[Rfam]
RNA: c-di-AMP riboswitch aptamer (ydaO/yuaA leader)
Organism: Blastococcus saxobsidens
Nucleotides: 153
Stems, first nucleotide, its partner, number of pairs: 001137003007033002034133006044056002057118003065094002068091003097112004
Number, partner (000 for none) and nucleotide at each position: 001137g002136c003135c004000g005000a006000a007033c008032c009000a010000c011000c012000g013000c014000c015000g016000g017000c018000a019000c020000c021000g022000g023000c024000c025000g026000g027000c028000a029000c030000g031000a032008g033007g034133a035132c036131c037130g038129g039128g040000g041000a042000c043000c044056c045055a046000u047000c048000g049000c050000u051000c052000u053000c054000c055045u056044g057118g058117g059116g060000u061000g062000g063000a064000g065094c066093g067000a068091c069090c070089g071000a072000c073000g074000g075000c076000c077000c078000g079000c080000a081000c082000g083000g084000g085000u086000c087000g088000c089070c090069g091068g092000a093066c094065g095000c096000c097112g098111g099110g100109c101000g102000u103000c104000u105000u106000c107000c108000c109100g110099c111098c112097c113000g114000a115000a116059c117058c118057c119000g120000u121000c122000a123000g124000c125000u126000g127000a128039c129038c130037c131036g132035g133034u134000a135003g136002g137001c138000g139000g140000c141000c142000g143000u144000g145000g146000a147000a148000g149000a150000a151000a152000g153000g